[Rfam]
RNA sequence: GUCAUCGUUUGCCUCCGAGUCUGAAUUUCUAAGGGCGUUGCCGAUGAGAUCAGACCACUGGGUACCACCGGAAACGGUGUUGCCUCCCCUUCAGAAAAGGAGAGCUGUUGCAAAUGCAA
Numbered sequence: 001g002u003c004a005u006c007g008u009u010u011g012c013c014u015c016c017g018a019g020u021c022u023g024a025a026u027u028u029c030u031a032a033g034g035g036c037g038u039u040g041c042c043g044a045u046g047a048g049a050u051c052a053g054a055c056c057a058c059u060g061g062g063u064a065c066c067a068c069c070g071g072a073a074a075c076g077g078u079g080u081u082g083c084c085u086c087c088c089c090u091u092c093a094g095a096a097a098a099g100g101a102g103a104g105c106u107g108u109u110g111c112a113a114a115u116g117c118a119a
Base pairs, nucleotide, nucleotide: 006110011105012104013102014101015100016099019055020054021053022052023051024050026049027048028047029046034042035041036040060085061084062083063082064081066079067078068077069076070075087094